This 104-nucleotide sequence from Vibrio alginolyticus belongs to the Rfam family "Tryptophan operon leader".
RNA sequence: CUUGCUUGGUGGCGCACUUGGACUAGUUCUUGGUGGGCAAACGUAUACUUCUAGUUUAUAGAACCAAACGUUGUAAAGCCCGCUACUUAAGCGGGCUUUUUUGU
Numbered sequence: 001c002u003u004g005c006u007u008g009g010u011g012g013c014g015c016a017c018u019u020g021g022a023c024u025a026g027u028u029c030u031u032g033g034u035g036g037g038c039a040a041a042c043g044u045a046u047a048c049u050u051c052u053a054g055u056u057u058a059u060a061g062a063a064c065c066a067a068a069c070g071u072u073g074u075a076a077a078g079c080c081c082g083c084u085a086c087u088u089a090a091g092c093g094g095g096c097u098u099u100u101u102u103g104u
Stems, first nucleotide, its partner, number of pairs: 009042002015035004020030003077097007084089001
The organism belongs to Vibrio alginolyticus, within Bacteria. About the family: At least 6 amino acid operons are known to be regulated by attenuation. It is one of the family's seed sequences. Gene Ontology terms of the family: tryptophan biosynthetic process and transcriptional attenuation by ribosome. Rfam classes the family as a cis-regulatory leader.